[Rfam]
RNA sequence: AGCAUGAUAAAGCCGAAUCCAGCUCAGGUACGGGGGAACCGCAAACCAGGGGUGAAAUUCCGGAAACGGAAUAGGGGUCCUCUAACCCUAACCCGUCAGCUAACCUCGGAGGCUUCGAGAGGGGCAGA
Numbered sequence: 001a002g003c004a005u006g007a008u009a010a011a012g013c014c015g016a017a018u019c020c021a022g023c024u025c026a027g028g029u030a031c032g033g034g035g036g037a038a039c040c041g042c043a044a045a046c047c048a049g050g051g052g053u054g055a056a057a058u059u060c061c062g063g064a065a066a067c068g069g070a071a072u073a074g075g076g077g078u079c080c081u082c083u084a085a086c087c088c089u090a091a092c093c094c095g096u097c098a099g100c101u102a103a104c105c106u107c108g109g110a111g112g113c114u115u116c117g118a119g120a121g122g123g124g125c126a127g128a
Stems, first nucleotide, its partner, number of pairs: 011114004019028002031108005040049001050094003058071004074088003